[Rfam]
RNA sequence: AAAAAGGUCAAUUGGCAAAUUAUGCCACACUCACCCUUAUUGGUGAGUGUUGUAUGACUAUCAAGACAUAUGACUGACAUAAUUUUUGUGAAAUUAUAGGGUUGGCUCGCUAGGCCUACCCUCAA
Numbered sequence: 001a002a003a004a005a006g007g008u009c010a011a012u013u014g015g016c017a018a019a020u021u022a023u024g025c026c027a028c029a030c031u032c033a034c035c036c037u038u039a040u041u042g043g044u045g046a047g048u049g050u051u052g053u054a055u056g057a058c059u060a061u062c063a064a065g066a067c068a069u070a071u072g073a074c075u076g077a078c079a080u081a082a083u084u085u086u087u088g089u090g091a092a093a094u095u096a097u098a099g100g101g102u103u104g105g106c107u108c109g110c111u112a113g114g115c116c117u118a119c120c121c122u123c124a125a
Stems, first nucleotide, its partner, number of pairs: 007078004013027005028049008050073007098122005104116004

U11 spliceosomal RNA: a 125-nucleotide RNA from Trifolium medium.
The base pairs follow the family's consensus structure, which is taken from published work.
The organism belongs to Trifolium, within Eukaryota.
Rfam 15.1 lists 2,595 matches to the family in 1,202 species.
The literature on the family includes a 2008 paper in J Mol Evol by Marz et al., "Evolution of spliceosomal snRNA genes in metazoan animals".
The family's RNA type in Rfam is spliceosomal small nuclear RNA.